[Rfam]
RNA: Glycine riboswitch aptamer
RNA sequence: CUCUGGAGAGCGGGCGAGCGAUCGCCCCACCGACGAGGAAAGCCGCAGGCCAUCGCGGUCAAUCUUUCAGGUCUCGGGACAGAG
Numbered sequence: 001c002u003c004u005g006g007a008g009a010g011c012g013g014g015c016g017a018g019c020g021a022u023c024g025c026c027c028c029a030c031c032g033a034c035g036a037g038g039a040a041a042g043c044c045g046c047a048g049g050c051c052a053u054c055g056c057g058g059u060c061a062a063u064c065u066u067u068c069a070g071g072u073c074u075c076g077g078g079a080c081a082g083a084g
Stems, first nucleotide, its partner, number of pairs: 001084005012027004029072003032068002036066003042059005